[Rfam]
RNA sequence: ACAUCAUCACCACCAUAAAGCAUAACCUUUCAGGUUUGUGCUGAAAGGUUGUAUUCCUUUCAGCGGCGCGCAAAUUCAUGCUAACCCCUCGAAAGGAAACUUUCGGGGGGUUUUUAGU
Numbered sequence: 001a002c003a004u005c006a007u008c009a010c011c012a013c014c015a016u017a018a019a020g021c022a023u024a025a026c027c028u029u030u031c032a033g034g035u036u037u038g039u040g041c042u043g044a045a046a047g048g049u050u051g052u053a054u055u056c057c058u059u060u061c062a063g064c065g066g067c068g069c070g071c072a073a074a075u076u077c078a079u080g081c082u083a084a085c086c087c088c089u090c091g092a093a094a095g096g097a098a099a100c101u102u103u104c105g106g107g108g109g110g111u112u113u114u115u116a117g118u
Stems, first nucleotide, its partner, number of pairs: 008040003012035003020031001041063008080115001083112013
The record is a 118-nucleotide RNA from Alteromonas sp. 5E99-2, which matches "Histidine operon leader" in Rfam.
The literature on the family includes a 1982 paper in Annu Rev Genet by Kolter and Yanofsky, "Attenuation in amino acid biosynthetic operons".
Rfam links the family to the GO term histidine biosynthetic process.
It is annotated as a cis-regulatory leader.
About the family: At least 6 amino acid operons are known to be regulated by attenuation. In each a leader sequence of 150-200 bp is found upstream of the first gene in the operon. This leader sequence can assume two different secondary structures known as the terminator and the anti-terminator structure. In each case the leader also codes for very short peptide sequence that is rich in the end product amino acid of the operon.
It scores 73 bits against the family's covariance model.